This 118-nucleotide sequence from Geodermatophilus ruber belongs to the Rfam family "SAM riboswitch aptamer (S box leader)". Rfam links the family to the GO term regulation of gene expression.
RNA sequence: CACUCAUCCAGAGGGGCAGAGGGACACGGCCCGAUGAAGCCCCGGCAACCGCCGCUACAGCGGAAGGUGCCAAUUCCGUCCCGCGCGGCUCGACGGCCCGACGCGGGGAAGAUGAGGA
Numbered sequence: 001c002a003c004u005c006a007u008c009c010a011g012a013g014g015g016g017c018a019g020a021g022g023g024a025c026a027c028g029g030c031c032c033g034a035u036g037a038a039g040c041c042c043c044g045g046c047a048a049c050c051g052c053c054g055c056u057a058c059a060g061c062g063g064a065a066g067g068u069g070c071c072a073a074u075u076c077c078g079u080c081c082c083g084c085g086c087g088g089c090u091c092g093a094c095g096g097c098c099c100g101a102c103g104c105g106g107g108g109a110a111g112a113u114g115a116g117g118a
Base pairs, nucleotide, nucleotide: 003116004115005114006113007112008111013043014042015041016040017039021032022031023030026079027078028077029076044071045070046069047068049067050066052063053062054061055060075110080107081106082105083104084103085102